[Rfam]
RNA sequence: GAUUGAGGACGACCUCAUCUUCGGGACAAUCUACUAUCCGGGACGACCUGG
Numbered sequence: 001g002a003u004u005g006a007g008g009a010c011g012a013c014c015u016c017a018u019c020u021u022c023g024g025g026a027c028a029a030u031c032u033a034c035u036a037u038c039c040g041g042g043a044c045g046a047c048c049u050g051g
Stems, first nucleotide, its partner, number of pairs: 001020001004017005038051005
A member of the RNA family "Guanidine-II riboswitch aptamer (mini-ykkC)" from Nitrosomonas europaea, 51 nucleotides long. Simpler in structure and has fewer highly conserved nucleotide positions than the ykkC-yxkD leader. Despite this each of its two stem-loop structures directly bind free guanidine. Therefore, mini-ykkC RNA motif represents a distinct class of guanidine-sensing RNAs. The family's consensus secondary structure is taken from published work. The source organism's lineage runs through Bacteria, Pseudomonadati, Pseudomonadota, Nitrosomonadales and Nitrosomonas europaea.